[Rfam]
RNA: mir-2807 microRNA precursor family
Organism: Bombyx mori
RNA sequence: UUAACUCGAAUUUGUAAGGAGUCAGCACGUUUGCCUAUGUUUGCCGCUAGGGGCGCUGUUACAACUCCAUACAAAUUUUAGUUA
Numbered sequence: 001u002u003a004a005c006u007c008g009a010a011u012u013u014g015u016a017a018g019g020a021g022u023c024a025g026c027a028c029g030u031u032u033g034c035c036u037a038u039g040u041u042u043g044c045c046g047c048u049a050g051g052g053g054c055g056c057u058g059u060u061a062c063a064a065c066u067c068c069a070u071a072c073a074a075a076u077u078u079u080a081g082u083u084a
Stems, first nucleotide, its partner, number of pairs: 008078009018068001020066003027059003034052003039047002